[Rfam]
RNA sequence: GGAGGCGUCGCCAAGCGGUAAGGCAGGGGCCUGCAAAGCCCUCAUUCGGCGGUUCGAAUCCGCCCGCCUCCU
Numbered sequence: 001g002g003a004g005g006c007g008u009c010g011c012c013a014a015g016c017g018g019u020a021a022g023g024c025a026g027g028g029g030c031c032u033g034c035a036a037a038g039c040c041c042u043c044a045u046u047c048g049g050c051g052g053u054u055c056g057a058a059u060c061c062g063c064c065c066g067c068c069u070c071c072u
Stems, first nucleotide, its partner, number of pairs: 001071007010024003026042005048064005
Rfam assigns this 72-nucleotide sequence from bacterium HR11 to the family "tRNA". It scores 63 bits against the family's covariance model. The family's RNA type in Rfam is transfer RNA.